[Rfam]
RNA sequence: GGCCCAAAUUUGAAGUAGAGGACAUUAGAAGGAUUAUCUGGUCCUACUAAACUACUCUACUUCGGGUUUGUGCCC
Numbered sequence: 001g002g003c004c005c006a007a008a009u010u011u012g013a014a015g016u017a018g019a020g021g022a023c024a025u026u027a028g029a030a031g032g033a034u035u036a037u038c039u040g041g042u043c044c045u046a047c048u049a050a051a052c053u054a055c056u057c058u059a060c061u062u063c064g065g066g067u068u069u070g071u072g073c074c075c
Base pairs, nucleotide, nucleotide: 001074002073003072005070006069007068008067009066011064012063013062014061015060016059017058018057019056020055022053025050026049027048028047030045032043033042034041035040
RNA: mir-5928 microRNA precursor family
Organism: Haemonchus placei